RNA sequence: GGGCUGGCUUUAGCUCAGCGGUUACUUCGACAAUUCUUUAAUUGAAACAAGCAACCUGUCUGGGUUGUUCGAGACCCGCGGGCGCUCUCCAGUCCUUUU
Number, nucleotide and partner (000 for none) at each position: 001g000002g094003g093004c092005u091006g090007g089008c000009u000010u000011u000012a000013g083014c082015u081016c080017a000018g079019c078020g077021g076022u000023u000024a000025c000026u073027u072028c071029g070030a069031c000032a000033a000034u000035u000036c000037u000038u000039u000040a000041a000042u000043u000044g000045a000046a000047a000048c000049a000050a000051g000052c000053a000054a000055c000056c000057u000058g000059u000060c000061u000062g000063g000064g000065u000066u000067g000068u000069u030070c029071g028072a027073g026074a000075c000076c021077c020078g019079c018080g016081g015082g014083c013084g000085c000086u000087c000088u000089c007090c006091a005092g004093u003094c002095c000096u000097u000098u000099u000
A member of the RNA family "Vault RNA" from Pan troglodytes, 99 nucleotides long. Rfam classes the family as a non-coding RNA gene. On this family, see Stadler et al., Mol Biol Evol 2009: "Evolution of Vault RNAs". This family of RNAs are found as part of the enigmatic vault ribonucleoprotein complex. The complex consists of a major vault protein (MVP), two minor vault proteins (VPARP and TEP1), and several small untranslated RNA molecules. It has been suggested that the vault complex is involved in drug resistance.